[Rfam]
RNA sequence: AGGAGGAACAACUGCAGUGGCGGCGGCAGCUCUGGGGCCCUGGAGUCAGCUCCUGCAGUAACUCCGGGGCUCUCUGUCUGCAGGGCCUGGAUGCUCCGGGGCGGG
Numbered sequence: 001a002g003g004a005g006g007a008a009c010a011a012c013u014g015c016a017g018u019g020g021c022g023g024c025g026g027c028a029g030c031u032c033u034g035g036g037g038c039c040c041u042g043g044a045g046u047c048a049g050c051u052c053c054u055g056c057a058g059u060a061a062c063u064c065c066g067g068g069g070c071u072c073u074c075u076g077u078c079u080g081c082a083g084g085g086c087c088u089g090g091a092u093g094c095u096c097c098g099g100g101g102c103g104g105g
Stems, first nucleotide, its partner, number of pairs: 002097004007092001009089002012085002019078005025072001028071009040058003
Dot-bracket structure: .((((.(.((.((.....(((((.(..(((((((((...(((.............)))....)))))))))).))))).....))..))..).))))........
This 105-nucleotide RNA sequence from Vulpes vulpes belongs to the Rfam family "mir-8834 microRNA precursor family". The family's consensus secondary structure was predicted with RNAalifold. It scores 75 bits against the family's covariance model.